[Rfam]
RNA sequence: UUGACCGUGUACUCCCACACGGCGUCCUGGUCCACCGGCACCCGGUCGCCGAAGUAGUCGCCGUCGGCCAGCACGCCGAGCACGGUCUCGUCGCCGUACUUGCCGGUGCCGACCUUGUUGAGCUUGCCGUGCGCGAUCAGCACCACCUGGUCCGCGCUCUGGCCCGCCUCGACCAGCACGCUCCCCGCGUCGUACUCCCGCUGCUCGAAGGCGCCCGCGAGCGCCUCGAGCGCGGCGGAGUCCGCGAACCCGCGCAGCAGCGGCAGCUCGCCGAGCUCCGGCGGGAUCACCCGCACCUCGGCACCGGUGGUGACGAACUCGACCCGGCCGUCCCCGACCGUGUACGUGAGUCGCCGGUUCACCCGGUACGUGCCGGCCUGGACCUGCACCCAGGGCAGCACCCGCAGCAGCCAACGCGUCGAGAUGCCCUGCAUCUGCGGGACGGUCUUCGUCGUGGUGGCUAGGUUGCGAGCGGCUGCGGUGCCCAGGCUGAGCUGCUGCUCGCCGG
Numbered sequence: 001u002u003g004a005c006c007g008u009g010u011a012c013u014c015c016c017a018c019a020c021g022g023c024g025u026c027c028u029g030g031u032c033c034a035c036c037g038g039c040a041c042c043c044g045g046u047c048g049c050c051g052a053a054g055u056a057g058u059c060g061c062c063g064u065c066g067g068c069c070a071g072c073a074c075g076c077c078g079a080g081c082a083c084g085g086u087c088u089c090g091u092c093g094c095c096g097u098a099c100u101u102g103c104c105g106g107u108g109c110c111g112a113c114c115u116u117g118u119u120g121a122g123c124u125u126g127c128c129g130u131g132c133g134c135g136a137u138c139a140g141c142a143c144c145a146c147c148u149g150g151u152c153c154g155c156g157c158u159c160u161g162g163c164c165c166g167c168c169u170c171g172a173c174c175a176g177c178a179c180g181c182u183c184c185c186c187g188c189g190u191c192g193u194a195c196u197c198c199c200g201c202u203g204c205u206c207g208a209a210g211g212c213g214c215c216c217g218c219g220a221g222c223g224c225c226u227c228g229a230g231c232g233c234g235g236c237g238g239a240g241u242c243c244g245c246g247a248a249c250c251c252g253c254g255c256a257g258c259a260g261c262g263g264c265a266g267c268u269c270g271c272c273g274a275g276c277u278c279c280g281g282c283g284g285g286a287u288c289a290c291c292c293g294c295a296c297c298u299c300g301g302c303a304c305c306g307g308u309g310g311u312g313a314c315g316a317a318c319u320c321g322a323c324c325c326g327g328c329c330g331u332c333c334c335c336g337a338c339c340g341u342g343u344a345c346g347u348g349a350g351u352c353g354c355c356g357g358u359u360c361a362c363c364c365g366g367u368a369c370g371u372g373c374c375g376g377c378c379u380g381g382a383c384c385u386g387c388a389c390c391c392a393g394g395g396c397a398g399c400a401c402c403c404g405c406a407g408c409a410g411c412c413a414a415c416g417c418g419u420c421g422a423g424a425u426g427c428c429c430u431g432c433a434u435c436u437g438c439g440g441g442a443c444g445g446u447c448u449u450c451g452u453c454g455u456g457g458u459g460g461c462u463a464g465g466u467u468g469c470g471a472g473c474g475g476c477u478g479c480g481g482u483g484c485c486c487a488g489g490c491u492g493a494g495c496u497g498c499u500g501c502u503c504g505c506c507g508g
Base pairs, nucleotide, nucleotide: 007389008388009387010386011385015381016380021325022324025322026321029318031316032315036312037311039309040308041307042306045305048302049301050300051299052298054233055232058229059228060227063224064223065111066110067109068108075103077102078101079100080099082097083096084095085094086093117222118221119220122218123217126214127213130210134207135206136205138203139202140201143200149196150195154193155192156191160189161184162183165180166179234296240290241289245285249283251281254278256277257276258275260271261270262269329342330341331340353377354376355375356374357373360372361371362370391431392430393429394428395427396426397425399423401421403418404417405416407415437476438475440473443470444469447465448464449463451461452460477507478506480502481501482500486497487496488495

Description: Shown here is a 508-nucleotide RNA sequence from Streptomyces buecherae, a member of the family "Saccharopolyspora sRNA 350". Rfam links the family to the GO term regulation of secondary metabolite biosynthetic process. Rfam 15.1 lists 1,170 matches to the family in 705 species.